[Rfam]
RNA sequence: UUCCUCACAUUUCCUUAUCACUUGGCUGUCCAGUCCCUGAGUUGAAAGAUUCACUGGACGGAGAACUGAUAAGGGCUCGUGUGAAG
Numbered sequence: 001u002u003c004c005u006c007a008c009a010u011u012u013c014c015u016u017a018u019c020a021c022u023u024g025g026c027u028g029u030c031c032a033g034u035c036c037c038u039g040a041g042u043u044g045a046a047a048g049a050u051u052c053a054c055u056g057g058a059c060g061g062a063g064a065a066c067u068g069a070u071a072a073g074g075g076c077u078c079g080u081g082u083g084a085a086g
Stems, first nucleotide, its partner, number of pairs: 012075009022065002026061002030057002
Shown here is an 86-nucleotide RNA from Darwinula stevensoni, a member of the family "mir-184 microRNA precursor family". Rfam links the family to the GO terms gene silencing by miRNA and RISC complex. The family's consensus secondary structure was predicted with PFOLD.